[Rfam]
RNA sequence: GUGCAGGCUCGCCUUGUCGCUGCCCCUCGCGGGGGAGAGGAAAGUCCGGGCAACGCAGAGCACCGUCCAAGCUAACGACUUGAUAGCCGUGAGGUUAUAGGAAACGUAACAGAAAACGACCGCCCCUGCUUGCAGGGGUAAGGGUGAAAAGGCGGGGUAAGAGCCCACCGCGGCGGCAGUGAUGUCGCCGGCCGUACGUCUGACGGGUUGCAAGACCGUGUAUACCGGCAGUUAAGGGUUGCUCGCCCGAUGUCGGGGGGUAGGUUGCUGGAGGCGGCGGGCGACCGCCGUCGUAGAUAAAUGACAGGGGCUCCGCACCGGAAGCGCGCAGCGGAGUACAGAACCCGGCUUACAGAGCCUGCUAAAAC
Numbered sequence: 001g002u003g004c005a006g007g008c009u010c011g012c013c014u015u016g017u018c019g020c021u022g023c024c025c026c027u028c029g030c031g032g033g034g035g036a037g038a039g040g041a042a043a044g045u046c047c048g049g050g051c052a053a054c055g056c057a058g059a060g061c062a063c064c065g066u067c068c069a070a071g072c073u074a075a076c077g078a079c080u081u082g083a084u085a086g087c088c089g090u091g092a093g094g095u096u097a098u099a100g101g102a103a104a105c106g107u108a109a110c111a112g113a114a115a116a117c118g119a120c121c122g123c124c125c126c127u128g129c130u131u132g133c134a135g136g137g138g139u140a141a142g143g144g145u146g147a148a149a150a151g152g153c154g155g156g157g158u159a160a161g162a163g164c165c166c167a168c169c170g171c172g173g174c175g176g177c178a179g180u181g182a183u184g185u186c187g188c189c190g191g192c193c194g195u196a197c198g199u200c201u202g203a204c205g206g207g208u209u210g211c212a213a214g215a216c217c218g219u220g221u222a223u224a225c226c227g228g229c230a231g232u233u234a235a236g237g238g239u240u241g242c243u244c245g246c247c248c249g250a251u252g253u254c255g256g257g258g259g260g261u262a263g264g265u266u267g268c269u270g271g272a273g274g275c276g277g278c279g280g281g282c283g284a285c286c287g288c289c290g291u292c293g294u295a296g297a298u299a300a301a302u303g304a305c306a307g308g309g310g311c312u313c314c315g316c317a318c319c320g321g322a323a324g325c326g327c328g329c330a331g332c333g334g335a336g337u338a339c340a341g342a343a344c345c346c347g348g349c350u351u352a353c354a355g356a357g358c359c360u361g362c363u364a365a366a367a368c
Base pairs, nucleotide, nucleotide: 003362004361005360006359007358008357009356010355011353012309013308014307015306016305017304018303020037021036023034024033025032026031042351043350044349046348047347048346049345050344051210052209053208054207058244059243060242061241063206064205065204066203067202068082069081070080071079083098085096086095087094088093099201100200104199105198106197107196108195120143121142122139123138124137125136126135127134128133151169152168154166155165156164170192171190172189173188174187175186176185177184178183214266215265216264217263225256226255227254228253229252236248237247238246239245273292274291275290276289277288278287279286280285
Background
This 368-nucleotide sequence from Alistipes communis belongs to the Rfam family "Bacterial RNase P class A". Clan: RNaseP clan. Ribonuclease P (RNase P) is a ubiquitous endoribonuclease, found in archaea, bacteria and eukarya as well as chloroplasts and mitochondria. A search with the family's covariance model found it, with a score of 244 bits.